[Rfam]
RNA: Small nucleolar RNA Z118/Z121/Z120
RNA sequence: GACUUGCCUUGAUGACUUACCAAGGACGGUAUCUGAGCGAGGAAACUAUCCUUGCAUGAUUAUACCUGAUCUGAGACAAUGUCUGAGCAAGUU
Numbered sequence: 001g002a003c004u005u006g007c008c009u010u011g012a013u014g015a016c017u018u019a020c021c022a023a024g025g026a027c028g029g030u031a032u033c034u035g036a037g038c039g040a041g042g043a044a045a046c047u048a049u050c051c052u053u054g055c056a057u058g059a060u061u062a063u064a065c066c067u068g069a070u071c072u073g074a075g076a077c078a079a080u081g082u083c084u085g086a087g088c089a090a091g092u093u
Base pairs, nucleotide, nucleotide: 001093002092003091004090005089006088007087037055038054039053040052041051042050
Dot-bracket structure: (((((((.............................((((((.......))))))...............................)))))))